[Rfam]
RNA sequence: AUACUUACCUGGUGUCGAGCUCUCCGGUGAUCAGCGAGGCUGGGGCUCCGUGUCGAGGCUUUCCAUUGCACUGCGGAUGGCUGAAGCGCGCCACUUUCCCAAACUGGGAUAGCUGGGGCAUGUAAUUUUUGGUAGUGGGGCUCGGCGUUCGCGCCAGCCCCUC
Numbered sequence: 001a002u003a004c005u006u007a008c009c010u011g012g013u014g015u016c017g018a019g020c021u022c023u024c025c026g027g028u029g030a031u032c033a034g035c036g037a038g039g040c041u042g043g044g045g046c047u048c049c050g051u052g053u054c055g056a057g058g059c060u061u062u063c064c065a066u067u068g069c070a071c072u073g074c075g076g077a078u079g080g081c082u083g084a085a086g087c088g089c090g091c092c093a094c095u096u097u098c099c100c101a102a103a104c105u106g107g108g109a110u111a112g113c114u115g116g117g118g119c120a121u122g123u124a125a126u127u128u129u130u131g132g133u134a135g136u137g138g139g140g141c142u143c144g145g146c147g148u149u150c151g152c153g154c155c156a157g158c159c160c161c162u163c
Stems, first nucleotide, its partner, number of pairs: 012121004017048005024043005050089004057082003062077003091116003094112001096109001098107002137161004142157001144155004
Record summary:
Shown here is a 163-nucleotide sequence from Rhipicephalus sanguineus, a member of the family "U1 spliceosomal RNA". Rfam describes the family as follows. U1 is a small nuclear RNA (snRNA) component of the spliceosome (involved in pre-mRNA splicing). A search with the family's covariance model found it, with a score of 121 bits. Taxonomically the source falls in Rhipicephalus (Eukaryota, Opisthokonta, Ixodida, Ixodidae).